[Rfam]
RNA: 6S / SsrS RNA
Organism: Caviibacterium pharyngocola
RNA sequence: GAUUACCUGAGGUGUUUGCCCGCGGAUUACGUCCCUGAGCCGAUACUUAAAACUUUAUGAAUUGGUUUCCUAUUGUUGGUGUGCACGCUUAACUUGACUCCGGUCCUGAUGUAAGAAGCCUAAAAACGAUUACAACCGAUUCCCUUGAACCGUAGGGUUCAAGGACCGACCAUCCGCAGCGGCAUCUCGGGUCCUUU
Number, nucleotide and partner (000 for none) at each position: 001g000002a195003u000004u000005a192006c191007c190008u189009g188010a187011g186012g185013u184014g183015u182016u000017u181018g180019c179020c000021c000022g000023c000024g000025g000026a000027u000028u000029a000030c000031g166032u165033c164034c163035c000036u161037g160038a159039g158040c157041c156042g000043a000044u000045a000046c000047u000048u000049a000050a000051a000052a000053c000054u000055u000056u000057a000058u000059g142060a141061a140062u000063u138064g137065g136066u135067u134068u000069c000070c000071u000072a130073u129074u128075g127076u126077u125078g000079g000080u000081g000082u000083g119084c118085a000086c000087g000088c115089u114090u113091a112092a000093c000094u000095u000096g000097a000098c000099u000100c000101c000102g000103g000104u000105c000106c000107u000108g000109a000110u000111g000112u091113a090114a089115g088116a000117a000118g084119c083120c000121u000122a000123a000124a000125a077126a076127c075128g074129a073130u072131u000132a000133c000134a067135a066136c065137c064138g063139a000140u061141u060142c059143c000144c000145u000146u000147g000148a000149a000150c000151c000152g000153u000154a000155g000156g041157g040158u039159u038160c037161a036162a000163g034164g033165a032166c031167c000168g000169a000170c000171c000172a000173u000174c000175c000176g000177c000178a000179g019180c018181g017182g015183c014184a013185u012186c011187u010188c009189g008190g007191g006192u005193c000194c000195u002196u000197u000